[Rfam]
RNA sequence: AAUCUAGUGUUGAGGACAACUUGCACACAACUUCUUGAAUCUCUCCCAGUACUCAUACAAGCUCUCUCCACCAAGUUGCCUUAUCCCUGAUAUAUAUUUUCUGAUU
Numbered sequence: 001a002a003u004c005u006a007g008u009g010u011u012g013a014g015g016a017c018a019a020c021u022u023g024c025a026c027a028c029a030a031c032u033u034c035u036u037g038a039a040u041c042u043c044u045c046c047c048a049g050u051a052c053u054c055a056u057a058c059a060a061g062c063u064c065u066c067u068c069c070a071c072c073a074a075g076u077u078g079c080c081u082u083a084u085c086c087c088u089g090a091u092a093u094a095u096a097u098u099u100u101c102u103g104a105u106u
Stems, first nucleotide, its partner, number of pairs: 001106001003104002006102001058075001061072001
The record is a 106-nucleotide sequence from Cajanus cajan, which matches "Plant small nucleolar RNA R71" in Rfam. The match comes from Rfam's covariance-model search (42 bits). It is annotated as a C/D-box small nucleolar RNA. Rfam links the family to the GO terms nucleolus and RNA processing. The base pairs follow the family's consensus structure, which was predicted with PFOLD. For this family Rfam cites "Plant snoRNAs: functional evolution and new modes of gene expression" (Brown et al., Trends Plant Sci, 2003).